[Rfam]
RNA: Glycine riboswitch aptamer
RNA sequence: GGAGCAGUUUCUGGAGAGAUCGCAUUCAAGCGACGCCGAAGGGUUAAUAAUCUCAGGCAAAAGGACAGAAGAUAACAG
Numbered sequence: 001g002g003a004g005c006a007g008u009u010u011c012u013g014g015a016g017a018g019a020u021c022g023c024a025u026u027c028a029a030g031c032g033a034c035g036c037c038g039a040a041g042g043g044u045u046a047a048u049a050a051u052c053u054c055a056g057g058c059a060a061a062a063g064g065a066c067a068g069a070a071g072a073u074a075a076c077a078g
Base pairs, nucleotide, nucleotide: 006073008071009070010069011068012067013066020033021032022031023030035058036057037056038054039053042052043051044050